[Rfam]
RNA sequence: GCAAAUAAAGAUUUGCUUCGCAGGAGCGAUAGCGCCAUCAUCUCUUAGCUUCUUCUACAUAGUUUUUGAGUGAUGGUGACGCUAUCUCUUCUAUGCAGCAAUACUUAUAUUUGC
Dot-bracket structure: (((.((((((..(((((.((.(((((.((((.((.((((((...............................)))))).)).)))).))))).)).)))))..))).))).)))
Numbered sequence: 001g002c003a004a005a006u007a008a009a010g011a012u013u014u015g016c017u018u019c020g021c022a023g024g025a026g027c028g029a030u031a032g033c034g035c036c037a038u039c040a041u042c043u044c045u046u047a048g049c050u051u052c053u054u055c056u057a058c059a060u061a062g063u064u065u066u067u068g069a070g071u072g073a074u075g076g077u078g079a080c081g082c083u084a085u086c087u088c089u090u091c092u093a094u095g096c097a098g099c100a101a102u103a104c105u106u107a108u109a110u111u112u113g114c
Stems, first nucleotide, its partner, number of pairs: 001114003005110003008106003013101005019095002022092005028086004033081002036078006